[Rfam]
RNA sequence: GAAGUUGGCCGGGCGAUCGCUGUCCUCACACGGGGGCAGAGGAAAGUCCGGGCUCCGCAGGGCAGGGCGCCAGGUAACGCCUGGGGGGCGUGAGCCCACGGAAAGUGCCACAGAAAAUACACCGCCUAAGCCCGCAAGGGCCGGUAAGGGUGAAAUGGUGCGGUAAGAGCGCACCGCGUUCCUGGCAACAGGAACGGCAGGGAAAACCCCGCUCGGAGCAAGACCAAAUAGGGGGGCGAUACGUGUGGCCCGCACGGCCCCCGGGUAGGUCGCUACAGGCGUCUGGUGACAGGCGUCGCAGAUGAAUGAUCGUCCUCGACAGAACCCGGCUUACAGGCCAACUUCCCCU
Numbered sequence: 001g002a003a004g005u006u007g008g009c010c011g012g013g014c015g016a017u018c019g020c021u022g023u024c025c026u027c028a029c030a031c032g033g034g035g036g037c038a039g040a041g042g043a044a045a046g047u048c049c050g051g052g053c054u055c056c057g058c059a060g061g062g063c064a065g066g067g068c069g070c071c072a073g074g075u076a077a078c079g080c081c082u083g084g085g086g087g088g089c090g091u092g093a094g095c096c097c098a099c100g101g102a103a104a105g106u107g108c109c110a111c112a113g114a115a116a117a118u119a120c121a122c123c124g125c126c127u128a129a130g131c132c133c134g135c136a137a138g139g140g141c142c143g144g145u146a147a148g149g150g151u152g153a154a155a156u157g158g159u160g161c162g163g164u165a166a167g168a169g170c171g172c173a174c175c176g177c178g179u180u181c182c183u184g185g186c187a188a189c190a191g192g193a194a195c196g197g198c199a200g201g202g203a204a205a206a207c208c209c210c211g212c213u214c215g216g217a218g219c220a221a222g223a224c225c226a227a228a229u230a231g232g233g234g235g236g237c238g239a240u241a242c243g244u245g246u247g248g249c250c251c252g253c254a255c256g257g258c259c260c261c262c263g264g265g266u267a268g269g270u271c272g273c274u275a276c277a278g279g280c281g282u283c284u285g286g287u288g289a290c291a292g293g294c295g296u297c298g299c300a301g302a303u304g305a306a307u308g309a310u311c312g313u314c315c316u317c318g319a320c321a322g323a324a325c326c327c328g329g330c331u332u333a334c335a336g337g338c339c340a341a342c343u344u345c346c347c348c349u
Stems, first nucleotide, its partner, number of pairs: 001345010011334001012314007020039008044332003048329005053218004060251004065214005070084005085099001086097004100209002105207002108202002122149002124145003130141004157175006176198001177196008222271004232262006242256005278297008

The record is a 349-nucleotide sequence from Plasticicumulans lactativorans, which matches "Bacterial RNase P class A" in Rfam. The source organism's lineage runs through Bacteria, Pseudomonadati, Pseudomonadota, Candidatus Competibacteraceae and Plasticicumulans. Rfam links the family to the GO terms tRNA processing, ribonuclease P activity and dimeric ribonuclease P complex. Ribonuclease P (RNase P) is a ubiquitous endoribonuclease, found in archaea, bacteria and eukarya as well as chloroplasts and mitochondria. The family's consensus secondary structure is taken from published work.